RNA sequence: GGGACCAUUUAUGAAAACCUCAGCUGAAAGCAGUUAACCUGUGGGCUGGGGUUGGAUGGCUAGAGUCUC
Numbered sequence: 001g002g003g004a005c006c007a008u009u010u011a012u013g014a015a016a017a018c019c020u021c022a023g024c025u026g027a028a029a030g031c032a033g034u035u036a037a038c039c040u041g042u043g044g045g046c047u048g049g050g051g052u053u054g055g056a057u058g059g060c061u062a063g064a065g066u067c068u069c
Stems, first nucleotide, its partner, number of pairs: 001069005016053010031041003